[Rfam]
RNA sequence: AUUGCGGGCCGGGCCCCUCUGACGAUCGCAUCGAUCGUGAUGUCGGACCGCAUCG
Numbered sequence: 001a002u003u004g005c006g007g008g009c010c011g012g013g014c015c016c017c018u019c020u021g022a023c024g025a026u027c028g029c030a031u032c033g034a035u036c037g038u039g040a041u042g043u044c045g046g047a048c049c050g051c052a053u054c055g
Stems, first nucleotide, its partner, number of pairs: 006049002009046004022038006
Rfam assigns this 55-nucleotide sequence from Sphingopyxis witflariensis to the family "terC RNA". The family's RNA type in Rfam is cis-regulatory element. The match comes from Rfam's covariance-model search (62 bits). The source organism's lineage runs through Bacteria, Pseudomonadati, Pseudomonadota, Alphaproteobacteria and Sphingopyxis.